The record is a 115-nucleotide sequence from Megalops atlanticus, which matches "U5 spliceosomal RNA" in Rfam. Rfam classes the family as a spliceosomal small nuclear RNA. Its family is annotated with spliceosomal tri-snRNP complex assembly and U5 snRNP in the Gene Ontology. The base pairs follow the family's consensus structure, which is taken from published work. The source organism's lineage runs through Eukaryota, Gnathostomata, Elopocephala, Elopomorpha and Megalops. A search with the family's covariance model found it, with a score of 85 bits.
RNA sequence: CCGCUCUGGUUUCUCUUCAUCACGUACAAAUCUUUCGCCUUUACUAAAGAUUUCCGUGGAGAGGAACACAGGUGAGCCUGUGCUAUUUUUGGAGUCCCUGCCUUUAAGGCAGGGC
Numbered sequence: 001c002c003g004c005u006c007u008g009g010u011u012u013c014u015c016u017u018c019a020u021c022a023c024g025u026a027c028a029a030a031u032c033u034u035u036c037g038c039c040u041u042u043a044c045u046a047a048a049g050a051u052u053u054c055c056g057u058g059g060a061g062a063g064g065a066a067c068a069c070a071g072g073u074g075a076g077c078c079u080g081u082g083c084u085a086u087u088u089u090u091g092g093a094g095u096c097c098c099u100g101c102c103u104u105u106a107a108g109g110c111a112g113g114g115c
Stems, first nucleotide, its partner, number of pairs: 003077004009067011028053008094115001096114006